[Rfam]
The record is a 118-nucleotide RNA sequence from Roseateles toxinivorans, which matches "ZMP/ZTP riboswitch aptamer (pfl RNA motif)" in Rfam. The family's consensus secondary structure is taken from published work. Gene Ontology terms of the family: regulation of purine nucleotide biosynthetic process and one-carbon metabolic process. The match comes from Rfam's covariance-model search (48 bits).
RNA sequence: CCAAUUCUGCGCAACUGGCGAUACGGGCCGCAGGCCCGAAGGUGGACCACCACCGGGAAGCGCGAACAGCUGGGGAGGGUCUCCAGCUGGUUUGAUGCCGUUCGCCUGGGCCGCCCUC
Numbered sequence: 001c002c003a004a005u006u007c008u009g010c011g012c013a014a015c016u017g018g019c020g021a022u023a024c025g026g027g028c029c030g031c032a033g034g035c036c037c038g039a040a041g042g043u044g045g046a047c048c049a050c051c052a053c054c055g056g057g058a059a060g061c062g063c064g065a066a067c068a069g070c071u072g073g074g075g076a077g078g079g080u081c082u083c084c085a086g087c088u089g090g091u092u093u094g095a096u097g098c099c100g101u102u103c104g105c106c107u108g109g110g111c112c113g114c115c116c117u118c
Stems, first nucleotide, its partner, number of pairs: 006066001008064005015057002017106005042053004097111003